[Rfam]
RNA sequence: UAGCAUCCUUAAUAAACCCCCCAGUUGCAUUUUGUGGCCUCUGGGACAAGAAAGGGUGCAAGAUUAAUCUUAGAAUUAUCCAAAGCUGAGAGCCGUGUGUCCGUGGCUCUUGGUUAUUUCACCUCUAAGACAGAA
Dot-bracket structure: ..((((..((.........(((((..((........))..)))))....))....))))....((..(((((((.........(((((((.((....(....)..)).)))))))........)))))))..)).
The family of this 135-nucleotide sequence from Mola mola is "Small nucleolar RNA SNORA14".
Gene Ontology terms of the family: nucleolus and RNA processing.
NCBI's taxonomy places the organism under Eukaryota, Vertebrata, Neopterygii, Acanthomorphata, Mola.
Rfam 15.1 lists 848 matches to the family in 633 species.
ACA14 is a member of the H/ACA class of snoRNA that guide the sites of modification of uridines to pseudouridines.